Shown here is a 127-nucleotide RNA sequence from Acipenser ruthenus, a member of the family "U4atac minor spliceosomal RNA". The family's consensus secondary structure is taken from published work. A search with the family's covariance model found it, with a score of 113 bits. On this family, see Marz et al., J Mol Evol 2008: "Evolution of spliceosomal snRNA genes in metazoan animals". By type it is a spliceosomal small nuclear RNA. Rfam's curators write: U4atac is an essential component of the minor U12-type spliceosome complex which is required for removal of the rarer class of eukaryotic introns (AT-AC, U12-type). Taxonomically the source falls in Acipenser (Eukaryota, Vertebrata, Gnathostomata, Euteleostomi). Gene Ontology terms of the family: pre-mRNA 5'-splice site binding, mRNA 5'-splice site recognition and U4atac snRNP.
RNA sequence: ACCUUCCUUGUCUUGGGGUUGCGUGGCUGUUCAAUGAACGUCUAGUGAGAGCAGCCCUGCUAACACCAUACCAACACAUUCGCAUCACCCAAGCACUAGCUUGGGCUAUGGUGCAAUUUUUGGAACC
Numbered sequence: 001a002c003c004u005u006c007c008u009u010g011u012c013u014u015g016g017g018g019u020u021g022c023g024u025g026g027c028u029g030u031u032c033a034a035u036g037a038a039c040g041u042c043u044a045g046u047g048a049g050a051g052c053a054g055c056c057c058u059g060c061u062a063a064c065a066c067c068a069u070a071c072c073a074a075c076a077c078a079u080u081c082g083c084a085u086c087a088c089c090c091a092a093g094c095a096c097u098a099g100c101u102u103g104g105g106c107u108a109u110g111g112u113g114c115a116a117u118u119u120u121u122g123g124a125a126c127c
Stems, first nucleotide, its partner, number of pairs: 006018004021060003026055007038046002082114006088105002091102004